RNA sequence: GGCGAGUGCCUUUCAGGCAUCCUCUCCUAACUCAUUGGGCCGGUCGAAAGACCGGCCUUUUUUUUGGUCCACC
Numbered sequence: 001g002g003c004g005a006g007u008g009c010c011u012u013u014c015a016g017g018c019a020u021c022c023u024c025u026c027c028u029a030a031c032u033c034a035u036u037g038g039g040c041c042g043g044u045c046g047a048a049a050g051a052c053c054g055g056c057c058u059u060u061u062u063u064u065u066g067g068u069c070c071a072c073c
Base pairs, nucleotide, nucleotide: 008018009017010016011015037058038057039056040055041054042053043052044051045050
A member of the RNA family "Makes More Granules Regulator RNA (mmgR)" from Sphingobium indicum, 73 nucleotides long. The base pairs follow the family's consensus structure. Rfam classes the family as a small RNA.